[Rfam]
RNA sequence: GUAUGACAGGAGUGAUGUAUCAAUUAGAUGUGUGAAGUGCACUGAUGAACUCAACUUUUGAUGCUUAUUGACAUCCUGCCAAUUAUAU
Numbered sequence: 001g002u003a004u005g006a007c008a009g010g011a012g013u014g015a016u017g018u019a020u021c022a023a024u025u026a027g028a029u030g031u032g033u034g035a036a037g038u039g040c041a042c043u044g045a046u047g048a049a050c051u052c053a054a055c056u057u058u059u060g061a062u063g064c065u066u067a068u069u070g071a072c073a074u075c076c077u078g079c080c081a082a083u084u085a086u087a088u
Base pairs, nucleotide, nucleotide: 001088002087003086004085005084006083009080010079
Annotation
Rfam assigns this 88-nucleotide sequence from Phoenix dactylifera to the family "Small nucleolar RNA Z266". The match comes from Rfam's covariance-model search (54 bits).